[Rfam]
RNA sequence: GUCUUAUCAAGAGAAGCCGAGGGAAAAGGCCCGACGACGCUUCAGCAACCUCUACACUAGUAGAAAGGUGCUAACUCCUACAAGUUUUGUACUUGGAAGAUAAGAA
Numbered sequence: 001g002u003c004u005u006a007u008c009a010a011g012a013g014a015a016g017c018c019g020a021g022g023g024a025a026a027a028g029g030c031c032c033g034a035c036g037a038c039g040c041u042u043c044a045g046c047a048a049c050c051u052c053u054a055c056a057c058u059a060g061u062a063g064a065a066a067g068g069u070g071c072u073a074a075c076u077c078c079u080a081c082a083a084g085u086u087u088u089g090u091a092c093u094u095g096g097a098a099g100a101u102a103a104g105a106a
Stems, first nucleotide, its partner, number of pairs: 002105007013043005021032003027079003044072004049068002051064004076098001081095005
Annotation
Shown here is a 106-nucleotide RNA from Candidatus Kurthia intestinigallinarum, a member of the family "SAM riboswitch aptamer (S box leader)". The match comes from Rfam's covariance-model search (89 bits). The base pairs follow the family's consensus structure, which is taken from published work. Rfam describes the family as follows. The SAM riboswitch is found upstream of a number of genes which code for proteins involved in methionine or cysteine biosynthesis in Gram-positive bacteria.